[Rfam]
RNA sequence: AGGCGGAGCGCGUGUAAGGACUCUGUUCGAAGGAGGCUCUGGUGUACUUCCCCGACAUCAGAUCAGCAUUCGGACAGGGCCCUAUACGCACCCCGUUGCCAG
Numbered sequence: 001a002g003g004c005g006g007a008g009c010g011c012g013u014g015u016a017a018g019g020a021c022u023c024u025g026u027u028c029g030a031a032g033g034a035g036g037c038u039c040u041g042g043u044g045u046a047c048u049u050c051c052c053c054g055a056c057a058u059c060a061g062a063u064c065a066g067c068a069u070u071c072g073g074a075c076a077g078g079g080c081c082c083u084a085u086a087c088g089c090a091c092c093c094c095g096u097u098g099c100c101a102g
Stems, first nucleotide, its partner, number of pairs: 010089007018082002021079011033067001036064001038062008
RNA: mraW RNA
Organism: Corynebacterium occultum